The record is a 150-nucleotide RNA from Paenalicyclobacillus mengziensis, which matches "FMN riboswitch aptamer (RFN element)" in Rfam. The match comes from Rfam's covariance-model search (117 bits).
[Rfam]
RNA sequence: AUGAACCUUCGGGGCAGGGUGAAAUUCCCGACCGGCGGUAACGAUUGCCCGCGCAAUCAGAGCCCGCGACUCAACCCGCUUGUAUUUCGGGUUGACUGACUCGGUGGAACUCCGAGGCCGACGGUAUAGUCCGGAUGGGAGAAGGUCCAG
Numbered sequence: 001a002u003g004a005a006c007c008u009u010c011g012g013g014g015c016a017g018g019g020u021g022a023a024a025u026u027c028c029c030g031a032c033c034g035g036c037g038g039u040a041a042c043g044a045u046u047g048c049c050c051g052c053g054c055a056a057u058c059a060g061a062g063c064c065c066g067c068g069a070c071u072c073a074a075c076c077c078g079c080u081u082g083u084a085u086u087u088c089g090g091g092u093u094g095a096c097u098g099a100c101u102c103g104g105u106g107g108a109a110c111u112c113c114g115a116g117g118c119c120g121a122c123g124g125u126a127u128a129g130u131c132c133g134g135a136u137g138g139g140a141g142a143a144g145g146u147c148c149a150g
Base pairs, nucleotide, nucleotide: 003148005146006145007144008143009142010141017029018028019027031130032129033120034119035067036066037065038064062118063117071095072094073093074092100116101115102114103113104112122133123132124131